This 47-nucleotide RNA sequence from Vigna radiata belongs to the Rfam family "Plastid-ycf3 group II-D1 intron". Rfam 15.1 lists 1,488 matches to the family in 559 species. The base pairs follow the family's consensus structure, which was predicted with LocARNA. A search with the family's covariance model found it, with a score of 64 bits. Its family is annotated with Group II intron splicing in the Gene Ontology. The literature on the family includes a 2023 paper in Plant Commun by Richter et al., "Retrograde signaling in plants: A critical review focusing on the GUN pathway and beyond".
RNA sequence: AUUCCUUCUGUCGUGUAUCCUCGAUGAAUGAAGCCUUAUAUGCUUGA
Numbered sequence: 001a002u003u004c005c006u007u008c009u010g011u012c013g014u015g016u017a018u019c020c021u022c023g024a025u026g027a028a029u030g031a032a033g034c035c036u037u038a039u040a041u042g043c044u045u046g047a
Base pairs, nucleotide, nucleotide: 010025011024012023013022032044033043034042